[Rfam]
RNA sequence: CCCACACUCAUGUGUGUAAGACCUCAAAAGAUCACCAUUAAAUUUGGCAUACAUAUAUAAAAAAGUUAUUAUAUGGGUGUGAGACUUGACUUUUUUAGAGAUCUGUGUCAAAUUUAAUGGUGAUCGUUUGGGGUCUUACACACAUAGGUGUGGG
Numbered sequence: 001c002c003c004a005c006a007c008u009c010a011u012g013u014g015u016g017u018a019a020g021a022c023c024u025c026a027a028a029a030g031a032u033c034a035c036c037a038u039u040a041a042a043u044u045u046g047g048c049a050u051a052c053a054u055a056u057a058u059a060a061a062a063a064a065g066u067u068a069u070u071a072u073a074u075g076g077g078u079g080u081g082a083g084a085c086u087u088g089a090c091u092u093u094u095u096u097a098g099a100g101a102u103c104u105g106u107g108u109c110a111a112a113u114u115u116a117a118u119g120g121u122g123a124u125c126g127u128u129u130g131g132g133g134u135c136u137u138a139c140a141c142a143c144a145u146a147g148g149u150g151u152g153g154g
Base pairs, nucleotide, nucleotide: 002153003152004151005150006149007148008147010145011144012143013142015140016139017138018137019136020135021134022133023132024131025130026129027128028127030125031124032123034121035120036119037118038117039116040115041114042113043112044111045110046109047108048107049106050105051104053102054101056099058097059096060095061094062093063092064091065090066089067088068087069082070081071080072079073078
RNA: MIR8565 microRNA precursor family